RNA sequence: CUCUUAUCGAGAGAGGUGGAGGGACCGGCCCAAUGAAACCCAGCAACCCCCCUAUUACAGGGAAAGGUGCUAAUUCCUGAUAGAUAAGAG
Numbered sequence: 001c002u003c004u005u006a007u008c009g010a011g012a013g014a015g016g017u018g019g020a021g022g023g024a025c026c027g028g029c030c031c032a033a034u035g036a037a038a039c040c041c042a043g044c045a046a047c048c049c050c051c052c053u054a055u056u057a058c059a060g061g062g063a064a065a066g067g068u069g070c071u072a073a074u075u076c077c078u079g080a081u082a083g084a085u086a087a088g089a090g
Stems, first nucleotide, its partner, number of pairs: 001090008013041001015040003021031003025079001027077002042071004047067002050062003075082001

Annotation
A member of the RNA family "SAM riboswitch aptamer (S box leader)" from Orenia marismortui, 90 nucleotides long. The base pairs follow the family's consensus structure, which is taken from published work. The organism belongs to Orenia, within Bacteria.